Shown here is a 598-nucleotide part of an RNA from Blastocystis hominis, a member of the family "Eukaryotic large subunit ribosomal RNA". A reference for the family is Yusupov et al. (2001), "Crystal structure of the ribosome at 5.5 A resolution", Science. The family is grouped with related families in Rfam's "LSU clan".
RNA sequence: GAAGACCCUGUUGAGCUUGACUCUAGUCUGACAUUGUGAAAUGACUUAGAGGGUGUAGAAUAGGUGGGAGAUUUUACAAUUGUAGGAUCGCAGGUGAAAUACCACUACCUCUAAUGUUGUUUUACUUAUUCCAUAAUAUGGGGUGAUGGCAGUUGUGCCAUCUGAAUGUGUAAGCUUCUCUCUCGAGUUGCAACCCACGUGGGAGACAUUGUUAGGUGGGGAGUUCGGCUGGGGCGGCACAUCUGUUAAAGAAUAACACAGGUGUCCUAAGAUGAGCUCAGUAAGAACAGAAAUCUUACGUAGAAUAAAAGGGUAAAAGCUCAUUUGAUUUUGAUUUUCAGUAUGAAUACAAACUACGAAAAUAUGGCCUAUCGAUCCUUUAGAUAUUUGAAUUUGGAGUUUAAAGCUAGAGGUGUCAGAAAAGUUACCACAGGGAUAACUGGCUUGUGGCGGCCAAGCGUUCAUAGCGACGUCGCUUUUUGAUUCUUCGAUGUCGGCUCUUCCUACCAAUACCUUGCAGACUGGGUAAAAUGUGAGAUUGUUCAUCUCAAAAUAGGGAACGUGAGCUGGGUUUAGACCGUCGUGAGACAGGUUAGUU
Numbered sequence: 001g002a003a004g005a006c007c008c009u010g011u012u013g014a015g016c017u018u019g020a021c022u023c024u025a026g027u028c029u030g031a032c033a034u035u036g037u038g039a040a041a042u043g044a045c046u047u048a049g050a051g052g053g054u055g056u057a058g059a060a061u062a063g064g065u066g067g068g069a070g071a072u073u074u075u076a077c078a079a080u081u082g083u084a085g086g087a088u089c090g091c092a093g094g095u096g097a098a099a100u101a102c103c104a105c106u107a108c109c110u111c112u113a114a115u116g117u118u119g120u121u122u123u124a125c126u127u128a129u130u131c132c133a134u135a136a137u138a139u140g141g142g143g144u145g146a147u148g149g150c151a152g153u154u155g156u157g158c159c160a161u162c163u164g165a166a167u168g169u170g171u172a173a174g175c176u177u178c179u180c181u182c183u184c185g186a187g188u189u190g191c192a193a194c195c196c197a198c199g200u201g202g203g204a205g206a207c208a209u210u211g212u213u214a215g216g217u218g219g220g221g222a223g224u225u226c227g228g229c230u231g232g233g234g235c236g237g238c239a240c241a242u243c244u245g246u247u248a249a250a251g252a253a254u255a256a257c258a259c260a261g262g263u264g265u266c267c268u269a270a271g272a273u274g275a276g277c278u279c280a281g282u283a284a285g286a287a288c289a290g291a292a293a294u295c296u297u298a299c300g301u302a303g304a305a306u307a308a309a310a311g312g313g314u315a316a317a318a319g320c321u322c323a324u325u326u327g328a329u330u331u332u333g334a335u336u337u338u339c340a341g342u343a344u345g346a347a348u349a350c351a352a353a354c355u356a357c358g359a360a361a362a363u364a365u366g367g368c369c370u371a372u373c374g375a376u377c378c379u380u381u382a383g384a385u386a387u388u389u390g391a392a393u394u395u396g397g398a399g400u401u402u403a404a405a406g407c408u409a410g411a412g413g414u415g416u417c418a419g420a421a422a423a424g425u426u427a428c429c430a431c432a433g434g435g436a437u438a439a440c441u442g443g444c445u446u447g448u449g450g451c452g453g454c455c456a457a458g459c460g461u462u463c464a465u466a467g468c469g470a471c472g473u474c475g476c477u478u479u480u481u482g483a484u485u486c487u488u489c490g491a492u493g494u495c496g497g498c499u500c501u502u503c504c505u506a507c508c509a510a511u512a513c514c515u516u517g518c519a520g521a522c523u524g525g526g527u528a529a530a531a532u533g534u535g536a537g538a539u540u541g542u543u544c545a546u547c548u549c550a551a552a553a554u555a556g557g558g559a560a561c562g563u564g565a566g567c568u569g570g571g572u573u574u575a576g577a578c579c580g581u582c583g584u585g586a587g588a589c590a591g592g593u594u595a596g597u598u
Stems, first nucleotide, its partner, number of pairs: 007434004012430002014426005020224004027216007036125010046114007063106005070089007129204005139197004147160005174191002178187001227240001228238003241263006266367002272324006278304002281299006305314002329353003334348004355364002378412006393405003443484001445482001447481001449477006458468002495570001496568004500562001501559005508533002511528005535549005576594004580589003